[Rfam]
RNA: Archaeal large subunit ribosomal RNA, nucleotides 1402 to 1805
Organism: candidate division MSBL1 archaeon SCGC-AAA382A20
RNA sequence: AGUAGUAACAGCAAAGUAGGGUGAAAAUCCCUAUCGCCGGAAGGGCGCGGGUUCCUCGUCAAUGUUCGUCAGCCGAGGGUUAGCCGGUCCUAAGCUCUUCCUUAACAAGAGGAGAGCAAAAGGGAAACGGGUUAAUAUUCCCGUGCCAUCUGGGUACCUGCCGUAAGGCUACGCUCGAUUCUCAACGUUUCGAGAUAAGCCGAGCAGGGUUCUCGCUCUGUUUAACUGGUAAAACCCGGGGAGAGCCGUAAUGGCGAGAACCGGGCGAAGUCAGGAAUAGCCUGCCAAAGUGGCGGGUUCGGCCGAUUCCUGGAUCCCUUGAAAAGGGAAUCGAGAAUUGGAAUCCCAGAUGAUCGUACCUAGAACCAACACAGGUGCCCCUAGGUGAGAAGCCUCAGGCGUGU
Numbered sequence: 001a002g003u004a005g006u007a008a009c010a011g012c013a014a015a016g017u018a019g020g021g022u023g024a025a026a027a028u029c030c031c032u033a034u035c036g037c038c039g040g041a042a043g044g045g046c047g048c049g050g051g052u053u054c055c056u057c058g059u060c061a062a063u064g065u066u067c068g069u070c071a072g073c074c075g076a077g078g079g080u081u082a083g084c085c086g087g088u089c090c091u092a093a094g095c096u097c098u099u100c101c102u103u104a105a106c107a108a109g110a111g112g113a114g115a116g117c118a119a120a121a122g123g124g125a126a127a128c129g130g131g132u133u134a135a136u137a138u139u140c141c142c143g144u145g146c147c148a149u150c151u152g153g154g155u156a157c158c159u160g161c162c163g164u165a166a167g168g169c170u171a172c173g174c175u176c177g178a179u180u181c182u183c184a185a186c187g188u189u190u191c192g193a194g195a196u197a198a199g200c201c202g203a204g205c206a207g208g209g210u211u212c213u214c215g216c217u218c219u220g221u222u223u224a225a226c227u228g229g230u231a232a233a234a235c236c237c238g239g240g241g242a243g244a245g246c247c248g249u250a251a252u253g254g255c256g257a258g259a260a261c262c263g264g265g266c267g268a269a270g271u272c273a274g275g276a277a278u279a280g281c282c283u284g285c286c287a288a289a290g291u292g293g294c295g296g297g298u299u300c301g302g303c304c305g306a307u308u309c310c311u312g313g314a315u316c317c318c319u320u321g322a323a324a325a326g327g328g329a330a331u332c333g334a335g336a337a338u339u340g341g342a343a344u345c346c347c348a349g350a351u352g353a354u355c356g357u358a359c360c361u362a363g364a365a366c367c368a369a370c371a372c373a374g375g376u377g378c379c380c381c382u383a384g385g386u387g388a389g390a391a392g393c394c395u396c397a398g399g400c401g402u403g404u
Base pairs, nucleotide, nucleotide: 016034017033018032019031020030021029035401036400037399038398043380044379045378046377049360050359054078055077056076057075058074063071064070085356086355087354089123090122094117095116096115097114098113099112101109102108127144128143129142130141131140147352148351149350150349151348152347153346154345181328182327183326187316189314190313191312192311194309195308199303200302201301202300203222204221205220206219207218208217226274227273228272229271235265236264237263238262239261245255246254247253286292366375367374383395384394385393